Shown here is a 108-nucleotide RNA from Sesamum indicum, a member of the family "Small nucleolar RNA Z103".
A reference for the family is Chen et al. (2003), "The high diversity of snoRNAs in plants: identification and comparative study of 120 snoRNA genes from Oryza sativa", Nucleic Acids Res.
RNA sequence: AUGGAAGUGAUGAAUAUUUCCCCAGAUGAUUCGAAGCUGAAAUUACUGAGCGCUACUUUUGUUUUUUCUCCCUUGUGGAGAAAAUCCAAGCCAGAUUUUCUGAUCCAU
Numbered sequence: 001a002u003g004g005a006a007g008u009g010a011u012g013a014a015u016a017u018u019u020c021c022c023c024a025g026a027u028g029a030u031u032c033g034a035a036g037c038u039g040a041a042a043u044u045a046c047u048g049a050g051c052g053c054u055a056c057u058u059u060u061g062u063u064u065u066u067u068c069u070c071c072c073u074u075g076u077g078g079a080g081a082a083a084a085u086c087c088a089a090g091c092c093a094g095a096u097u098u099u100c101u102g103a104u105c106c107a108u
Base pairs, nucleotide, nucleotide: 001108002107003106004105005104
Annotation
Gene Ontology terms of the family: RNA processing and nucleolus. Lineage of the source: Eukaryota > Spermatophyta > asterids > lamiids > Sesamum.